The family of this 71-nucleotide RNA from Phyllostomus discolor is "mir-192/215 microRNA precursor family". Lineage of the source: Eukaryota > Chordata > Euteleostomi > Phyllostomidae > Phyllostomus. The match comes from Rfam's covariance-model search (61 bits). This family represents the human microRNA (miRNA) precursors mir-192 and mir-215. Animal miRNAs are transcribed as ~70nt precursors and subsequently processed by the Dicer enzyme to give a ~22nt product. In this case the mature sequence comes from the 5' arm of the precursor. The extents of the hairpin precursors are not generally known and are estimated based on hairpin prediction.
[Rfam]
RNA sequence: ACAGGAGAAUGACCUAUGAAUUGACAGACUGUGGCUAAGCGUGUCUGUCACUUCUGAGGCCAAUAUUCUGU
Numbered sequence: 001a002c003a004g005g006a007g008a009a010u011g012a013c014c015u016a017u018g019a020a021u022u023g024a025c026a027g028a029c030u031g032u033g034g035c036u037a038a039g040c041g042u043g044u045c046u047g048u049c050a051c052u053u054c055u056g057a058g059g060c061c062a063a064u065a066u067u068c069u070g071u
Base pairs, nucleotide, nucleotide: 001071002070003069004068005067006066008064010062011061013059014058015057018054019053020052022050023049024048025047026046027045028044029043